[Rfam]
Nucleotides: 203
Base pairs, nucleotide, nucleotide: 018053019052020051021050022049023048031043032042034040054195055194056193057192064111065110066109067108068103069102070101071100072099073098074097075096076095080091118191119190120189121188122187127182128181129180130179131178132177133152134151135150140148141147157175
Number, partner (000 for none) and nucleotide at each position: 001000g002000a003000g004000a005000a006000c007000u008000g009000a010000c011000a012000g013000u014000u015000c016000g017000a018053u019052a020051g021050g022049u023048a024000a025000a026000a027000u028000g029000a030000u031043g032042g033000a034040g035000u036000a037000a038000c039000g040034c041000c042032c043031u044000g045000a046000a047000g048023u049022a050021c051020c052019u053018a054195c055194c056193c057192u058000a059000a060000u061000a062000c063000u064111c065110c066109g067108a068103a069102u070101g071100g072099c073098g074097u075096c076095g077000a078000g079000g080091u081000u082000a083000u084000u085000a086000a087000g088000a089000a090000c091080g092000g093000a094000a095076c096075g097074g098073c099072g100071u101070c102069a103068u104000g105000a106000g107000c108067u109066c110065g111064g112000u113000g114000a115000a116000g117000a118191c119190g120189g121188c122187u123000g124000a125000g126000a127182g128181c129180a130179c131178a132177c133152c134151c135150u136000a137000a138000c139000a140148g141147g142000u143000c144000a145000a146000g147141c148140u149000g150135a151134g152133g153000a154000a155000a156000a157175c158000c159000g160000a161000a162000c163000a164000a165000u166000a167000a168000a169000a170000a171000c172000g173000u174000c175157g176000a177132g178131u179130g180129u181128g182127u183000g184000a185000u186000a187122g188121g189120c190119c191118g192057g193056g194055g195054g196000u197000c198000u199000a200000c201000a202000a203000a
A member of the RNA family "Group II catalytic intron D1-D4-5" from Desulfoscipio gibsoniae, 203 nucleotides long. Pairs were carried over by alignment from the consensus structure. Its family is annotated with Group II intron splicing in the Gene Ontology. Group II introns are found in rRNA, tRNA and mRNA of organelles in fungi, plants and protists, and also in mRNA in bacteria.